The family of this 114-nucleotide RNA from Spinacia oleracea is "small nucleolar RNA snoR126". It scores 66 bits against the family's covariance model. Its family is annotated with nucleolus and RNA processing in the Gene Ontology. The organism belongs to Spinacia, within Eukaryota.

RNA sequence: AGGCAGUGAUGAAAAAAACAUUUCUCGAUGCUGAUUUAGUCUGUGAGACUAAUUGCGAGUAUACAAUCAUCUGUAUACUUUCUUGAUGACUGCAUUUGUGCGUGUCUGAGCCUC
Numbered sequence: 001a002g003g004c005a006g007u008g009a010u011g012a013a014a015a016a017a018a019c020a021u022u023u024c025u026c027g028a029u030g031c032u033g034a035u036u037u038a039g040u041c042u043g044u045g046a047g048a049c050u051a052a053u054u055g056c057g058a059g060u061a062u063a064c065a066a067u068c069a070u071c072u073g074u075a076u077a078c079u080u081u082c083u084u085g086a087u088g089a090c091u092g093c094a095u096u097u098g099u100g101c102g103u104g105u106c107u108g109a110g111c112c113u114c
Stems, first nucleotide, its partner, number of pairs: 001113004